[Rfam]
RNA sequence: CCCCCAAAUGAUGAUUAUGGAUUGAAUAUCUCACGACGGUCGUCUGAGAUGCUCAGUGUCAUCGUUGAUGUAAUCACAAUCCUUUGUUUCUGAUGGAU
Numbered sequence: 001c002c003c004c005c006a007a008a009u010g011a012u013g014a015u016u017a018u019g020g021a022u023u024g025a026a027u028a029u030c031u032c033a034c035g036a037c038g039g040u041c042g043u044c045u046g047a048g049a050u051g052c053u054c055a056g057u058g059u060c061a062u063c064g065u066u067g068a069u070g071u072a073a074u075c076a077c078a079a080u081c082c083u084u085u086g087u088u089u090c091u092g093a094u095g096g097a098u
Base pairs, nucleotide, nucleotide: 003096004095050058051057052056

Overview: Small nucleolar RNA Z161/Z228: a 98-nucleotide RNA from Salvia splendens. Rfam classes the family as a C/D-box small nucleolar RNA. Lineage of the source: Eukaryota > Viridiplantae > eudicotyledons > Salvia subgen. Calosphace > core Calosphace.